About this RNA
Rfam assigns this 117-nucleotide RNA sequence from Rodentibacter trehalosifermentans to the family "Aggregatibacter sRNA 54". About the family: Validated by RT-PCR, expression up-regulated during growth. The family's consensus secondary structure was predicted with RNAfold.
RNA sequence: GCGUAACAUUCGCCCGAUUUUUUAACGAGAAGGACACACACUUUGGACAGUCAUAGUCGAUACCGAAUAUCGCUUUAGUCUCCCGCCUUAUGCCAAUGGCUAUCGGCGAGAGUUCGU
Numbered sequence: 001g002c003g004u005a006a007c008a009u010u011c012g013c014c015c016g017a018u019u020u021u022u023u024a025a026c027g028a029g030a031a032g033g034a035c036a037c038a039c040a041c042u043u044u045g046g047a048c049a050g051u052c053a054u055a056g057u058c059g060a061u062a063c064c065g066a067a068u069a070u071c072g073c074u075u076u077a078g079u080c081u082c083c084c085g086c087c088u089u090a091u092g093c094c095a096a097u098g099g100c101u102a103u104c105g106g107c108g109a110g111a112g113u114u115c116g117u
Stems, first nucleotide, its partner, number of pairs: 001013003005010001031076003035072001042067005050061003078114001080112003084108004

A search with the family's covariance model found it, with a score of 80 bits. The literature on the family includes a 2017 paper in DNA Res by Oogai et al., "Small RNA repertoires and their intraspecies variation in Aggregatibacter actinomycetemcomitans". The family's RNA type in Rfam is small RNA.